[Rfam]
RNA sequence: CUCUGGAGAGACUCUUAAGAGCACCGAAGGAGAAAGCCGUAAGGUGAAACUCUCAGGUAAAAGGACAGGG
Numbered sequence: 001c002u003c004u005g006g007a008g009a010g011a012c013u014c015u016u017a018a019g020a021g022c023a024c025c026g027a028a029g030g031a032g033a034a035a036g037c038c039g040u041a042a043g044g045u046g047a048a049a050c051u052c053u054c055a056g057g058u059a060a061a062a063g064g065a066c067a068g069g070g
Base pairs, nucleotide, nucleotide: 001070002069003068004067005066012021013020014019023058024057025056026054027053030052031051032050036045037044
RNA: Glycine riboswitch aptamer
Organism: Clostridium sp. cel8